[Rfam]
RNA sequence: CUGCGGUGAUGAGCGGUGGACGGUGACUGACCGGUAUUGUCCUCCUCCGGGACGCUCUGACCGGGACGUGAUGCCCCGUUAAUCUUCUCUCUGAGCGG
Numbered sequence: 001c002u003g004c005g006g007u008g009a010u011g012a013g014c015g016g017u018g019g020a021c022g023g024u025g026a027c028u029g030a031c032c033g034g035u036a037u038u039g040u041c042c043u044c045c046u047c048c049g050g051g052a053c054g055c056u057c058u059g060a061c062c063g064g065g066a067c068g069u070g071a072u073g074c075c076c077c078g079u080u081a082a083u084c085u086u087c088u089c090u091c092u093g094a095g096c097g098g
Stems, first nucleotide, its partner, number of pairs: 001097001003096002039055002
Z30 small nucleolar RNA: a 98-nucleotide sequence from Salarias fasciatus. On this family, see Galardi et al., Mol Cell Biol 2002: "Purified box C/D snoRNPs are able to reproduce site-specific 2'-O-methylation of target RNA in vitro". Lineage of the source: Eukaryota > Eumetazoa > Craniata > Salariinae > Salarias. It scores 52 bits against the family's covariance model. Rfam classes the family as a C/D-box small nucleolar RNA.